[Rfam]
RNA: mir-574 microRNA precursor family
RNA sequence: AGGCCCAGAGAGAGGCAGGGUCUGAUCUGCAGCCUCCGUGGCAGCUGCUGAUCAGCCCUUGCCUCUCUCUUUCUCUCCG
Number, nucleotide and partner (000 for none) at each position: 001a000002g000003g000004c000005c000006c000007a070008g069009a068010g067011a066012g065013a064014g063015g062016c061017a060018g059019g000020g057021u000022c055023u054024g053025a052026u051027c050028u000029g000030c047031a046032g045033c044034c000035u000036c000037c000038g000039u000040g000041g000042c000043a000044g033045c032046u031047g030048c000049u000050g027051a026052u025053c024054a023055g022056c000057c020058c000059u018060u017061g016062c015063c014064u013065c012066u011067c010068u009069c008070u007071u000072u000073c000074u000075c000076u000077c000078c000079g000